Notes
The family of this 51-nucleotide sequence is "Guanidine-II riboswitch aptamer (mini-ykkC)". The literature on the family includes a 2007 paper in Nucleic Acids Res by Weinberg et al., "Identification of 22 candidate structured RNAs in bacteria using the CMfinder comparative genomics pipeline". A search with the family's covariance model found it, with a score of 34 bits.
RNA sequence: CAGCGAGGACGACCUCCCCCGGAAACGGGCACAACAUUCGGGACGACCCGA
Numbered sequence: 001c002a003g004c005g006a007g008g009a010c011g012a013c014c015u016c017c018c019c020c021g022g023a024a025a026c027g028g029g030c031a032c033a034a035c036a037u038u039c040g041g042g043a044c045g046a047c048c049c050g051a
Base pairs, nucleotide, nucleotide: 003018005016006015007014008013038051039050040049041048042047